[Rfam]
RNA sequence: CAGUGCUCCGGGGUCGGUGAGAAUCCGAACCGGCGGUGACAGUCCGCGAGCCGAGGCGCCGGCACCCGAUUCGGGUGCUGCCGAAGCUGAUCCGGUGAAAUUCCGGAACCGACGGUGAUGCGAGGAAAAUCCCUCGUCAGUCCGGAUGGGAGGCAGCACAG
Numbered sequence: 001c002a003g004u005g006c007u008c009c010g011g012g013g014u015c016g017g018u019g020a021g022a023a024u025c026c027g028a029a030c031c032g033g034c035g036g037u038g039a040c041a042g043u044c045c046g047c048g049a050g051c052c053g054a055g056g057c058g059c060c061g062g063c064a065c066c067c068g069a070u071u072c073g074g075g076u077g078c079u080g081c082c083g084a085a086g087c088u089g090a091u092c093c094g095g096u097g098a099a100a101u102u103c104c105g106g107a108a109c110c111g112a113c114g115g116u117g118a119u120g121c122g123a124g125g126a127a128a129a130u131c132c133c134u135c136g137u138c139a140g141u142c143c144g145g146a147u148g149g150g151a152g153g154c155a156g157c158a159c160a161g
Stems, first nucleotide, its partner, number of pairs: 003157002007153002015027003031111002033047004042109002050087002091107005113144003
Dot-bracket structure: ..((..((......(((.......)))...((((((.....[[))))..((..................................))...(((((.......)))))]])).(((..........................))).......))..))....

This 161-nucleotide RNA from Microbacterium rhizomatis belongs to the Rfam family "FMN riboswitch aptamer (RFN element)". The RFN element is a highly conserved domain that is found frequently in the 5'-untranslated regions of prokaryotic mRNAs that encode for flavin mononucleotide (FMN) biosynthesis and transport proteins. Pairs were carried over by alignment from the consensus structure, which is taken from published work.